[Rfam]
RNA sequence: GUCGGGGUAGUGCCCGGUGAACAGCGUCGGACGACUCGGCACGCA
Numbered sequence: 001g002u003c004g005g006g007g008u009a010g011u012g013c014c015c016g017g018u019g020a021a022c023a024g025c026g027u028c029g030g031a032c033g034a035c036u037c038g039g040c041a042c043g044c045a
Stems, first nucleotide, its partner, number of pairs: 012032001014030005
A member of the RNA family "Mycobacterium sRNA Ms_AS-5" from Mycolicibacterium neoaurum, 45 nucleotides long. The base pairs follow the family's consensus structure. Rfam classes the family as a small RNA. It scores 60 bits against the family's covariance model. For this family Rfam cites "Identification of small RNAs in Mycobacterium smegmatis using heterologous Hfq" (Li et al., RNA, 2013). The organism belongs to Mycolicibacterium neoaurum, within Bacteria.